[Rfam]
RNA sequence: GGGGGCUAAGGACAUGGUGUCCUCGCGGGCUGCAAACCCGUUGGCCGGUUCGUAAAUUAGCCGGGGUCGGUUCGAUUCCGACUAGCCCUC
Numbered sequence: 001g002g003g004g005g006c007u008a009a010g011g012a013c014a015u016g017g018u019g020u021c022c023u024c025g026c027g028g029g030c031u032g033c034a035a036a037c038c039c040g041u042u043g044g045c046c047g048g049u050u051c052g053u054a055a056a057u058u059a060g061c062c063g064g065g066g067u068c069g070g071u072u073c074g075a076u077u078c079c080g081a082c083u084a085g086c087c088c089u090c
Stems, first nucleotide, its partner, number of pairs: 001090007009023006024043001025041005045064005067081004
Rfam assigns this 90-nucleotide RNA from Dethiobacter alkaliphilus to the family "Selenocysteine transfer RNA". The match comes from Rfam's covariance-model search (58 bits). Its family is annotated with triplet codon-amino acid adaptor activity in the Gene Ontology. Its Rfam clan is "tRNA clan".